S-element: a 65-nucleotide RNA from Mesorhizobium sp. J18. This family represents a group of S-elements from p42d and related plasmids. The S-element has multiple functions and is believed to act as a negative regulator of repC transcription, be required for efficient replication and act as a translational enhancer of repC. Lineage of the source: Bacteria > Pseudomonadota > Hyphomicrobiales > Phyllobacteriaceae > Mesorhizobium. A reference for the family is Venkova-Canova et al. (2004), "Two discrete elements are required for the replication of a repABC plasmid: an antisense RNA and a stem-loop structure", Mol Microbiol. The match comes from Rfam's covariance-model search (62 bits).
[Rfam]
RNA sequence: UGUCAAGAGUCUAGGCGUCGUUUCGGCGAGCAGGUUUCUUUUGCCUAACGGUAGGUGAAGGAAUG
Numbered sequence: 001u002g003u004c005a006a007g008a009g010u011c012u013a014g015g016c017g018u019c020g021u022u023u024c025g026g027c028g029a030g031c032a033g034g035u036u037u038c039u040u041u042u043g044c045c046u047a048a049c050g051g052u053a054g055g056u057g058a059a060g061g062a063a064u065g
Stems, first nucleotide, its partner, number of pairs: 010061002012058001016057004021053001023051003028046001030044005